[Rfam]
Record summary:
This 107-nucleotide RNA from Apium graveolens belongs to the Rfam family "Plant small nucleolar RNA R71".
RNA sequence: AUGUCAUGGUGAGGACAUUGUCUAUGAAGCCUUUUGUAUCUUUUCCAUGCACCAUAAAGAAACUCCUCAUUAUCUUGAUGAAAGUUAGAUAUGUCGUUCCUGAGCUA
Numbered sequence: 001a002u003g004u005c006a007u008g009g010u011g012a013g014g015a016c017a018u019u020g021u022c023u024a025u026g027a028a029g030c031c032u033u034u035u036g037u038a039u040c041u042u043u044u045c046c047a048u049g050c051a052c053c054a055u056a057a058a059g060a061a062a063c064u065c066c067u068c069a070u071u072a073u074c075u076u077g078a079u080g081a082a083a084g085u086u087a088g089a090u091a092u093g094u095c096g097u098u099c100c101u102g103a104g105c106u107a
Base pairs, nucleotide, nucleotide: 003105004104005102006101058073060071
Gene Ontology terms of the family: nucleolus and RNA processing. Lineage of the source: Eukaryota > Tracheophyta > Euphyllophyta > Apiaceae > Apium. On this family, see Brown et al., Trends Plant Sci 2003: "Plant snoRNAs: functional evolution and new modes of gene expression".